The family of this 75-nucleotide sequence from Amphibalanus amphitrite is "mir-9/mir-79 microRNA precursor family". The base pairs follow the family's consensus structure, which was predicted with RNAalifold.
RNA sequence: CCGCUCCCUGCUUUGGUAUUCUGGCUUAUGAGUGACUGUGACGUCAUAAAGCUAGACUACCAAAGCAGGGCGCGG
Numbered sequence: 001c002c003g004c005u006c007c008c009u010g011c012u013u014u015g016g017u018a019u020u021c022u023g024g025c026u027u028a029u030g031a032g033u034g035a036c037u038g039u040g041a042c043g044u045c046a047u048a049a050a051g052c053u054a055g056a057c058u059a060c061c062a063a064a065g066c067a068g069g070g071c072g073c074g075g
Stems, first nucleotide, its partner, number of pairs: 001075004007069012020056007027048005